RNA sequence: GGAUAGCAAUAUUUUGCUAUCCCCAAUCAAUAACACAAUGACCCGUGAAACGGCUAUCAUACGUGUUAUUGCGUUAUUGGUUGGGAAUAGCAAAAAGUGUUAUCC
Numbered sequence: 001g002g003a004u005a006g007c008a009a010u011a012u013u014u015u016g017c018u019a020u021c022c023c024c025a026a027u028c029a030a031u032a033a034c035a036c037a038a039u040g041a042c043c044c045g046u047g048a049a050a051c052g053g054c055u056a057u058c059a060u061a062c063g064u065g066u067u068a069u070u071g072c073g074u075u076a077u078u079g080g081u082u083g084g085g086a087a088u089a090g091c092a093a094a095a096a097g098u099g100u101u102a103u104c105c
Stems, first nucleotide, its partner, number of pairs: 002104004012095009022085013036071007044063004050057001

A member of the RNA family "MIR6274 microRNA precursor family" from Prunus persica, 105 nucleotides long. Its family is annotated with miRNA-mediated post-transcriptional gene silencing and RISC complex in the Gene Ontology. Lineage of the source: Eukaryota > Spermatophyta > Gunneridae > fabids > Prunus. Pairs were carried over by alignment from the consensus structure, which was predicted with RNAalifold.